[Rfam]
RNA sequence: GCUGUUUGAGGUGGAAAAUUUCGUACGAUCCACACGCCGAUGGUAUGACAGGGGAAACCCGAGAGAUGCAGGAGCCACGUACGCCUGCCAAAUAGC
Numbered sequence: 001g002c003u004g005u006u007u008g009a010g011g012u013g014g015a016a017a018a019u020u021u022c023g024u025a026c027g028a029u030c031c032a033c034a035c036g037c038c039g040a041u042g043g044u045a046u047g048a049c050a051g052g053g054g055a056a057a058c059c060c061g062a063g064a065g066a067u068g069c070a071g072g073a074g075c076c077a078c079g080u081a082c083g084c085c086u087g088c089c090a091a092a093u094a095g096c
Stems, first nucleotide, its partner, number of pairs: 001096008011033005023082005035063001037053002068088005
Dot-bracket structure: ((((((((..(((((.......[[[[[.))))).(.((.............)).........)....(((((.....]]]]].)))))))))))))
skipping-rope RNA: a 96-nucleotide RNA sequence. Rfam classes the family as a small RNA. It is one of the family's seed sequences.